Record summary:
Small nucleolar RNA SNORA32: a 129-nucleotide sequence from Cnephaeus nilssonii. The match comes from Rfam's covariance-model search (108 bits). The source organism's lineage runs through Eukaryota, Dipnotetrapodomorpha, Eutheria, Vespertilionidae and Cnephaeus.
[Rfam]
RNA sequence: UGGUCAUUACUAAGGCUUUUAGAAUGCAGUUUCUCAUUUGCCGUGAACAUGACCACAAAACAUUUUCCCAAUAGGUUUUCUUUCUGCUAUGUUGGUAGCAUUGCUAUGUUUAGCCUUUUGGGAACAUUU
Numbered sequence: 001u002g003g004u005c006a007u008u009a010c011u012a013a014g015g016c017u018u019u020u021a022g023a024a025u026g027c028a029g030u031u032u033c034u035c036a037u038u039u040g041c042c043g044u045g046a047a048c049a050u051g052a053c054c055a056c057a058a059a060a061c062a063u064u065u066u067c068c069c070a071a072u073a074g075g076u077u078u079u080c081u082u083u084c085u086g087c088u089a090u091g092u093u094g095g096u097a098g099c100a101u102u103g104c105u106a107u108g109u110u111u112a113g114c115c116u117u118u119u120g121g122g123a124a125c126a127u128u129u
Stems, first nucleotide, its partner, number of pairs: 003053005011045002026041004067122004074115004085100003
Rfam describes the family as follows. ACA32 is a member of the H/ACA class of snoRNA that guide the sites of modification of uridines to pseudouridines. It is annotated as an H/ACA-box small nucleolar RNA.